[Rfam]
RNA sequence: UGGAGUAGUGAUGAUCUUCUCUCAACUUCAGCGCUCUCACUGAUUACUGGACGAUGAGCAAAGACCUGAUAUUCUU
Numbered sequence: 001u002g003g004a005g006u007a008g009u010g011a012u013g014a015u016c017u018u019c020u021c022u023c024a025a026c027u028u029c030a031g032c033g034c035u036c037u038c039a040c041u042g043a044u045u046a047c048u049g050g051a052c053g054a055u056g057a058g059c060a061a062a063g064a065c066c067u068g069a070u071a072u073u074c075u076u
Stems, first nucleotide, its partner, number of pairs: 002075006
This 76-nucleotide sequence from Octodon degus belongs to the Rfam family "Small nucleolar RNA SNORD81". The family has 22 seed sequences and 317 matches in Rfam 15.1. Taxonomically the source falls in Octodon (Eukaryota, Mammalia, Boreoeutheria, Hystricomorpha). The family's consensus secondary structure was predicted with PFOLD. A search with the family's covariance model found it, with a score of 56 bits.